[Rfam]
RNA sequence: CCCAUCGGCAAGGAUGAGCUCGUCUCUCACAUCAUUGCCGGGCUUGAUAUGGACUAUCAGCCCAUUAUCUCUGCCCUUGACGUCCGAACUGACACAGUUUCUGUCGACGAUCUCUUCGCGAUGGUGUCCAACUUUGAUC
Numbered sequence: 001c002c003c004a005u006c007g008g009c010a011a012g013g014a015u016g017a018g019c020u021c022g023u024c025u026c027u028c029a030c031a032u033c034a035u036u037g038c039c040g041g042g043c044u045u046g047a048u049a050u051g052g053a054c055u056a057u058c059a060g061c062c063c064a065u066u067a068u069c070u071c072u073g074c075c076c077u078u079g080a081c082g083u084c085c086g087a088a089c090u091g092a093c094a095c096a097g098u099u100u101c102u103g104u105c106g107a108c109g110a111u112c113u114c115u116u117c118g119c120g121a122u123g124g125u126g127u128c129c130a131a132c133u134u135u136g137a138u139c
Stems, first nucleotide, its partner, number of pairs: 004138005090106004
Shown here is a 139-nucleotide sequence from Triticum urartu, a member of the family "Small nucleolar RNA Z247". By type it is a C/D-box small nucleolar RNA. Pairs were carried over by alignment from the consensus structure, which was predicted with PFOLD. A search with the family's covariance model found it, with a score of 54 bits. The source organism's lineage runs through Eukaryota, Streptophytina, Mesangiospermae, commelinids and Triticum.